[Rfam]
RNA sequence: UCAAUAAAUGGGCAAACUUAUUGAAAAAUAAGGACGCAAAGCUUCCGACCUAAGGUCAUCGAUCAUGGUAGCGGGGUUUCCAGU
Numbered sequence: 001u002c003a004a005u006a007a008a009u010g011g012g013c014a015a016a017c018u019u020a021u022u023g024a025a026a027a028a029u030a031a032g033g034a035c036g037c038a039a040a041g042c043u044u045c046c047g048a049c050c051u052a053a054g055g056u057c058a059u060c061g062a063u064c065a066u067g068g069u070a071g072c073g074g075g076g077u078u079u080c081c082a083g084u
Stems, first nucleotide, its partner, number of pairs: 012037002017032006040078004045074003048069003055063003
A member of the RNA family "c-di-GMP-I riboswitch aptamer" from Affinundibacterium fentianense, 84 nucleotides long. The organism belongs to Affinundibacterium, within Bacteria. Rfam's curators write: GEMM was predicted in a large-scale screen for bacterial structured RNA regulatory elements.